[Rfam]
RNA sequence: UCAUUUUUCUUGAUGAAGCCAUUACGGAUGUAAAUUUUACAAACUUUCCGAGAGCGCCUAACCCCAUGUGGAGUUUUCCGUUGCCUUCCUUCUGACUUACAAC
Dot-bracket structure: ...(....................((((................................................))))....................)..